The family of this 73-nucleotide RNA sequence from Alligator sinensis is "Mammalian CPEB3 ribozyme". A search with the family's covariance model found it, with a score of 38 bits. From the family's description: The mammalian CPEB3 ribozyme is a self cleaving RNA located in the second intron of the CPEB3 gene which belongs to a family of genes regulating messenger RNA polyadenylation. This ribozyme is highly conserved and found only in mammals.
RNA sequence: UCACAAGUUCAAGGCCACAGCAGAAACAUCCAUAGCAUGGCCUAUCAGAUUCAAUGAGUCUGUGAAUUCUGCU
Dot-bracket structure: ............[[[[..((((((((...........)]]]]...(((((((...)))))))....)))))))